Shown here is an 80-nucleotide sequence from Astyanax mexicanus, a member of the family "Small nucleolar RNA SNORD83". Rfam 15.1 lists 1,393 matches to the family in 644 species. It scores 60 bits against the family's covariance model. The literature on the family includes a 2000 paper in Nucleic Acids Res by Jady and Kiss, "Characterisation of the U83 and U84 small nucleolar RNAs: two novel 2'-O-ribose methylation guide RNAs that lack complementarities to ribosomal RNAs". Rfam links the family to the GO terms RNA processing and nucleolus.

[Rfam]
RNA sequence: GCCACAUGAUGAUCUUAUAUAGAUUGCAUUAGCAUUCUGUGCAAAGAUGACCAUCUAUCUAUCACCCAAGACUGAUGGCU
Numbered sequence: 001g002c003c004a005c006a007u008g009a010u011g012a013u014c015u016u017a018u019a020u021a022g023a024u025u026g027c028a029u030u031a032g033c034a035u036u037c038u039g040u041g042c043a044a045a046g047a048u049g050a051c052c053a054u055c056u057a058u059c060u061a062u063c064a065c066c067c068a069a070g071a072c073u074g075a076u077g078g079c080u
Stems, first nucleotide, its partner, number of pairs: 001079004032042004